This 98-nucleotide RNA from Paraburkholderia phenazinium belongs to the Rfam family "Glycine riboswitch aptamer". Rfam describes the family as follows. This family represents the bacterial glycine riboswitch. Glycine riboswitches usually consist of two metabolite-binding aptamers domains with similar structures in tandem. The aptamers cooperatively bind glycine to regulate the expression of downstream genes. In Bacillus subtilis, this riboswitch is found upstream of the gcvT operon which controls glycine degradation. A search with the family's covariance model found it, with a score of 58 bits.

RNA sequence: CGAUUGAUAUCGGAAGAGUCUCUACCUGCCGCGGCAGGCAGAGCGCCGAAGGAGCAACCGCCCCGGAAACUCUCAGGCUAAAGGACCGGCAUCGCUUU
Numbered sequence: 001c002g003a004u005u006g007a008u009a010u011c012g013g014a015a016g017a018g019u020c021u022c023u024a025c026c027u028g029c030c031g032c033g034g035c036a037g038g039c040a041g042a043g044c045g046c047c048g049a050a051g052g053a054g055c056a057a058c059c060g061c062c063c064c065g066g067a068a069a070c071u072c073u074c075a076g077g078c079u080a081a082a083g084g085a086c087c088g089g090c091a092u093c094g095c096u097u098u
Stems, first nucleotide, its partner, number of pairs: 006093003010089004020043004045078003048074002052072003058066002
Its family is annotated with glycine biosynthetic process in the Gene Ontology. NCBI's taxonomy places the organism under Bacteria, Pseudomonadota, Betaproteobacteria, Burkholderiaceae, Paraburkholderia.